[Rfam]
RNA sequence: GUCCUUCGCUAAGGAGUCUCUUAUGCGGAAACUCAUGGCCGCUAUGAUAGUCGGCCUGAUAGGGCUAACCGCGCUGUCCGUGUCGACCACGGCUGUCGCAUGCGGUGAUUCGAGCUAUCAAUCUUCGAGCGAUGGUAAGUGAUCCCGCAGCCCGAAGGCGCCGAGUGCGCAAAAAAAAAGGCCUUCAUCUGACGAUGAGGGCCUUUUACU
Numbered sequence: 001g002u003c004c005u006u007c008g009c010u011a012a013g014g015a016g017u018c019u020c021u022u023a024u025g026c027g028g029a030a031a032c033u034c035a036u037g038g039c040c041g042c043u044a045u046g047a048u049a050g051u052c053g054g055c056c057u058g059a060u061a062g063g064g065c066u067a068a069c070c071g072c073g074c075u076g077u078c079c080g081u082g083u084c085g086a087c088c089a090c091g092g093c094u095g096u097c098g099c100a101u102g103c104g105g106u107g108a109u110u111c112g113a114g115c116u117a118u119c120a121a122u123c124u125u126c127g128a129g130c131g132a133u134g135g136u137a138a139g140u141g142a143u144c145c146c147g148c149a150g151c152c153c154g155a156a157g158g159c160g161c162c163g164a165g166u167g168c169g170c171a172a173a174a175a176a177a178a179a180g181g182c183c184u185u186c187a188u189c190u191g192a193c194g195a196u197g198a199g200g201g202c203c204u205u206u207u208a209c210u
Stems, first nucleotide, its partner, number of pairs: 005029005012021003037056003041051003062153004071099003074095001078092005102148003107144004158170004176207014
The family of this 210-nucleotide sequence from Paraburkholderia ginsengiterrae is "Burkholderia sRNA 11". A search with the family's covariance model found it, with a score of 110 bits. The source organism's lineage runs through Bacteria, Pseudomonadota, Betaproteobacteria, Burkholderiales and Paraburkholderia. The literature on the family includes a 2017 paper in Sci Rep by Sass et al., "Identification of small RNAs abundant in Burkholderia cenocepacia biofilms reveal putative regulators with a potential role in carbon and iron metabolism".